[Rfam]
RNA sequence: UACAGCGAGUAGUCGCUGUUUCGCAAAAACGAAGCAGAGGAAAGUCGAGACACGCACAUCCGACAAUGCCCAAAGGCAAAGUCCGGAUGUAAAAUGGUGCCCGGUGUAAGCCGGGGCAGGGCGACCUGACGACGGUGAAAGCAACUCCUUGAGUUGCCGGUAACCUUAAAGUGCCACAGAAACAAAGUCACCGGGCGACCGGUGAGUGCAAGGGUAAACUCCACCAGCGUGCAACCCAAAUAGGCGGGGGCGUUUGCCACCCGCGGGUAGGGGCACCUCGCCCCGGCGAGGAAGGAGAGGGCAUCUCCUUAGAUAGAUGACUACUGAAACAGAAUCUCGCUUACGGCU
Numbered sequence: 001u002a003c004a005g006c007g008a009g010u011a012g013u014c015g016c017u018g019u020u021u022c023g024c025a026a027a028a029a030c031g032a033a034g035c036a037g038a039g040g041a042a043a044g045u046c047g048a049g050a051c052a053c054g055c056a057c058a059u060c061c062g063a064c065a066a067u068g069c070c071c072a073a074a075g076g077c078a079a080a081g082u083c084c085g086g087a088u089g090u091a092a093a094a095u096g097g098u099g100c101c102c103g104g105u106g107u108a109a110g111c112c113g114g115g116g117c118a119g120g121g122c123g124a125c126c127u128g129a130c131g132a133c134g135g136u137g138a139a140a141g142c143a144a145c146u147c148c149u150u151g152a153g154u155u156g157c158c159g160g161u162a163a164c165c166u167u168a169a170a171g172u173g174c175c176a177c178a179g180a181a182a183c184a185a186a187g188u189c190a191c192c193g194g195g196c197g198a199c200c201g202g203u204g205a206g207u208g209c210a211a212g213g214g215u216a217a218a219c220u221c222c223a224c225c226a227g228c229g230u231g232c233a234a235c236c237c238a239a240a241u242a243g244g245c246g247g248g249g250g251c252g253u254u255u256g257c258c259a260c261c262c263g264c265g266g267g268u269a270g271g272g273g274c275a276c277c278u279c280g281c282c283c284c285g286g287c288g289a290g291g292a293a294g295g296a297g298a299g300g301g302c303a304u305c306u307c308c309u310u311a312g313a314u315a316g317a318u319g320a321c322u323a324c325u326g327a328a329a330c331a332g333a334a335u336c337u338c339g340c341u342u343a344c345g346g347c348u
Base pairs, nucleotide, nucleotide: 004348005347006346007344008325009324010323011322012321013320014319016037017036018035019034020033021032042342043341044340046339047338048337049336050335051231052230053229054228055227056090057089058088059087060086061085095226096225097224098223099222100115101114102113103112104111105110116130117128118127119126120125131221132220134165135164136163142156143155144154145153147151171219172218173215174214175213188205189204190203191202192201193200194199235272236271237270276291277290278289279288280287281286292310293309294308295307296306297305
Dot-bracket structure: ...(((((((((((.((((((..........))))))....[[[.[[[[[(((((((((((.......................))))))....(((((((((((....))))))(((((....)))).)((.(((.....((((.(...).))))......))).....(((((............(((((((....))))))).......)))..))))))))))))))...(((................................)))...((((((....))))))((((((.......))))))........))))))).........]]]]]]]].).)))

Rfam assigns this 348-nucleotide sequence from Desulforamulus ruminis to the family "Bacterial RNase P class B". Taxonomically the source falls in Desulforamulus ruminis (Bacteria, Bacillota, Clostridia, Peptococcaceae). The match comes from Rfam's covariance-model search (155 bits). Gene Ontology terms of the family: ribonuclease P activity, tRNA processing and dimeric ribonuclease P complex. The family's RNA type in Rfam is ribozyme.